[Rfam]
This 88-nucleotide sequence from Camphora micrantha belongs to the Rfam family "mir-160 microRNA precursor family".
Its family is annotated with RISC complex and miRNA-mediated post-transcriptional gene silencing in the Gene Ontology.
A search with the family's covariance model found it, with a score of 82 bits.
The base pairs follow the family's consensus structure, which was predicted with PFOLD.
On this family, see Rhoades et al., Cell 2002: "Prediction of plant microRNA targets".
The organism belongs to Camphora, within Eukaryota.
RNA sequence: UUAUGCCUGGCUCCCUGUAUGCCACACAUGGAGACCUAUCUCUGUAGUGAUCGGCUACUGUGAGUGGCGUGCGAGGAGCCAAGCAUAC
Numbered sequence: 001u002u003a004u005g006c007c008u009g010g011c012u013c014c015c016u017g018u019a020u021g022c023c024a025c026a027c028a029u030g031g032a033g034a035c036c037u038a039u040c041u042c043u044g045u046a047g048u049g050a051u052c053g054g055c056u057a058c059u060g061u062g063a064g065u066g067g068c069g070u071g072c073g074a075g076g077a078g079c080c081a082a083g084c085a086u087a088c
Base pairs, nucleotide, nucleotide: 002087003086004085005084006083008081009080010079011078012077013076014075016073017072018071019070020069021068022067023066024065027062028061029060